RNA sequence: UGGCUGUAGCUAAAUCGAUCAACGGGAGAGAAGUUAACUGGCCGGUUGUCGUGAGAUCCCUCUCAGUCGACUAAUCUGCUUACCGAACUUCUCACAUUC
Numbered sequence: 001u002g003g004c005u006g007u008a009g010c011u012a013a014a015u016c017g018a019u020c021a022a023c024g025g026g027a028g029a030g031a032a033g034u035u036a037a038c039u040g041g042c043c044g045g046u047u048g049u050c051g052u053g054a055g056a057u058c059c060c061u062c063u064c065a066g067u068c069g070a071c072u073a074a075u076c077u078g079c080u081u082a083c084c085g086a087a088c089u090u091c092u093c094a095c096a097u098u099c
Base pairs, nucleotide, nucleotide: 028093029092030091031090032089033088034087035086040080041079042078044076045075046074047073048071049070050069051068
RNA: Small nucleolar RNA snoR109
Organism: Nelumbo nucifera